[Rfam]
RNA sequence: AAGCGAGGACGACCUCCCCAUCAUGGACCAGAGGCCGGGACGACCCGG
Dot-bracket structure: ..(.((((....)))).)................(((((....)))))

Guanidine-II riboswitch aptamer (mini-ykkC): a 48-nucleotide RNA sequence from Pelagovum pacificum. The organism belongs to Pelagovum, within Bacteria. A reference for the family is Weinberg et al. (2007), "Identification of 22 candidate structured RNAs in bacteria using the CMfinder comparative genomics pipeline", Nucleic Acids Res. The family's consensus secondary structure is taken from published work. Its family is annotated with regulation of gene expression in the Gene Ontology.